Record summary:
Rfam assigns this 72-nucleotide RNA from Citrobacter freundii to the family "Nucleoid-associated noncoding RNA 4 (CssrE)". About the family: In E. coli small RNA transcribed from repeated extragenic palindromic element (REP325) called nucleoid-associated ncRNA 4 (nRNA4) collaborates HU protein in condensing the DNA. The secondary structure but not the sequence of the RNA is important in nucleoid condensation. Also identified in Shigella as CssrE. Rfam links the family to the GO terms protein binding, bacterial nucleoid and bacterial nucleoid DNA packaging. The family's consensus secondary structure is taken from published work. The family has 3 seed sequences and 870 matches in Rfam 15.1. On this family, see Peng et al., PLoS One 2011: "An integrated approach for finding overlooked genes in Shigella".
RNA sequence: GGCCGGAUAACGCGUUUACGCUGCCAUCCGGCAUCAAUGCCCGAUGACGACGCUGAUGCGUCUUAUCGGGCC
Numbered sequence: 001g002g003c004c005g006g007a008u009a010a011c012g013c014g015u016u017u018a019c020g021c022u023g024c025c026a027u028c029c030g031g032c033a034u035c036a037a038u039g040c041c042c043g044a045u046g047a048c049g050a051c052g053c054u055g056a057u058g059c060g061u062c063u064u065a066u067c068g069g070g071c072c
Stems, first nucleotide, its partner, number of pairs: 002032007012021003039071008049062005